[Rfam]
RNA sequence: GUGGGUUAUGGGGAUAUCUAUCCCCAAACCCUUCUAGGUAAAAUAGUGGGUGGUCUCUGUUGUAUAGCUGGUGUGUUGGUGAUUGCUCUACCCAUCCCCAUCAUAGUGAACAAC
Numbered sequence: 001g002u003g004g005g006u007u008a009u010g011g012g013g014a015u016a017u018c019u020a021u022c023c024c025c026a027a028a029c030c031c032u033u034c035u036a037g038g039u040a041a042a043a044u045a046g047u048g049g050g051u052g053g054u055c056u057c058u059g060u061u062g063u064a065u066a067g068c069u070g071g072u073g074u075g076u077u078g079g080u081g082a083u084u085g086c087u088c089u090a091c092c093c094a095u096c097c098c099c100a101u102c103a104u105a106g107u108g109a110a111c112a113a114c
Stems, first nucleotide, its partner, number of pairs: 001114002004111001007108003011104001013102003020095002037077004049063001
Potassium channel RNA editing signal: a 114-nucleotide sequence from Danionella cerebrum. Its family is annotated with adenosine to inosine editing in the Gene Ontology. Rfam's curators write: This family represents a group of sequences related to the human potassium channel Kv1.1 hairpin element which directs the efficient modification of an adenosine to inosine by an adenosine deaminase acting on RNA (ADAR). The ADAR modification causes an isoleucine/valine recoding event which lies in the ion-conducting pore of the potassium channel. It is thought that this editing event targets the process of fast inactivation and allows a more rapid recovery from inactivation at negative potentials. It scores 82 bits against the family's covariance model.